Rfam assigns this 101-nucleotide sequence from Pseudoalteromonas citrea to the family "TPP riboswitch aptamer (THI element)". Pairs were carried over by alignment from the consensus structure, which is taken from published work.
[Rfam]
RNA sequence: CGUUACUUGUCGGAGUGCCCUUUGGGCUGAGAUCGCAUUCGUGCGGGAUCCGUGAACCUGAUCAGGCUAACACCUGCGUAGGGAACAAGCUGCCUGUAUUA
Numbered sequence: 001c002g003u004u005a006c007u008u009g010u011c012g013g014a015g016u017g018c019c020c021u022u023u024g025g026g027c028u029g030a031g032a033u034c035g036c037a038u039u040c041g042u043g044c045g046g047g048a049u050c051c052g053u054g055a056a057c058c059u060g061a062u063c064a065g066g067c068u069a070a071c072a073c074c075u076g077c078g079u080a081g082g083g084a085a086c087a088a089g090c091u092g093c094c095u096g097u098a099u100u101a
Stems, first nucleotide, its partner, number of pairs: 006089005011052004016046001017027004034045004057082004063076004